[Rfam]
RNA sequence: CGUCGGUAGCCAAUCCGAUCCGGCUAACUCUCGCUCCAGCCGGAAGCACUUGGGGCGGUCCAGGAGGCAACAAAUGGGCUGAAGCACUUCAAGAAAAGGCCUCUAUAGUGAGGUCAGCGGACCCUGCGUGCGUAUUCCGC
Numbered sequence: 001c002g003u004c005g006g007u008a009g010c011c012a013a014u015c016c017g018a019u020c021c022g023g024c025u026a027a028c029u030c031u032c033g034c035u036c037c038a039g040c041c042g043g044a045a046g047c048a049c050u051u052g053g054g055g056c057g058g059u060c061c062a063g064g065a066g067g068c069a070a071c072a073a074a075u076g077g078g079c080u081g082a083a084g085c086a087c088u089u090c091a092a093g094a095a096a097a098g099g100c101c102u103c104u105a106u107a108g109u110g111a112g113g114u115c116a117g118c119g120g121a122c123c124c125u126g127c128g129u130g131c132g133u134a135u136u137c138c139g140c
Stems, first nucleotide, its partner, number of pairs: 020043005051091005056081006066071001098115006117140005
The record is a 140-nucleotide RNA from Acidithiobacillus caldus, which matches "Group II catalytic intron D1-D4-4" in Rfam. On this family, see Bonen and Vogel, Trends Genet 2001: "The ins and outs of group II introns". Group II introns are found in rRNA, tRNA and mRNA of organelles in fungi, plants and protists, and also in mRNA in bacteria. Gene Ontology term of the family: Group II intron splicing.